[Rfam]
RNA: tRNA
RNA sequence: GCUUCCGUAGCUCAGUUGGUUAGAGCGGCGUACUAAUACUUCAUACCGAGUAAUUGGUAAUGCGAAGGUCUCAGGUUCAAGCCCUGGCGGGAGCA
Numbered sequence: 001g002c003u004u005c006c007g008u009a010g011c012u013c014a015g016u017u018g019g020u021u022a023g024a025g026c027g028g029c030g031u032a033c034u035a036a037u038a039c040u041u042c043a044u045a046c047c048g049a050g051u052a053a054u055u056g057g058u059a060a061u062g063c064g065a066a067g068g069u070c071u072c073a074g075g076u077u078c079a080a081g082c083c084c085u086g087g088c089g090g091g092a093g094c095a
Stems, first nucleotide, its partner, number of pairs: 001094007010026004029064004071087005